[Rfam]
RNA sequence: GGAGAUAAACGCGCGUAUAAUAAGCGGACUGGACCCGGGUGCGAUUCCCGGCGGCUCCACCAAUCUUCGCCGGGUUAUCGCCGGGCAAGCACGGGGCCGAUCAGCAUCGACAGACGUGUAAAGGCGUUGCUUUCUCUCGGCCUGACCCACCGUUCCGGGUCUUAAACUAAAUGCGAACGAUAACUUCGCUGAGGAAGUUCGCCUGGCUGCGUAA
Numbered sequence: 001g002g003a004g005a006u007a008a009a010c011g012c013g014c015g016u017a018u019a020a021u022a023a024g025c026g027g028a029c030u031g032g033a034c035c036c037g038g039g040u041g042c043g044a045u046u047c048c049c050g051g052c053g054g055c056u057c058c059a060c061c062a063a064u065c066u067u068c069g070c071c072g073g074g075u076u077a078u079c080g081c082c083g084g085g086c087a088a089g090c091a092c093g094g095g096g097c098c099g100a101u102c103a104g105c106a107u108c109g110a111c112a113g114a115c116g117u118g119u120a121a122a123g124g125c126g127u128u129g130c131u132u133u134c135u136c137u138c139g140g141c142c143u144g145a146c147c148c149a150c151c152g153u154u155c156c157g158g159g160u161c162u163u164a165a166a167c168u169a170a171a172u173g174c175g176a177a178c179g180a181u182a183a184c185u186u187c188g189c190u191g192a193g194g195a196a197g198u199u200c201g202c203c204u205g206g207c208u209g210c211g212u213a214a
Stems, first nucleotide, its partner, number of pairs: 001137005013127004025116002029113003035051005052099007138152003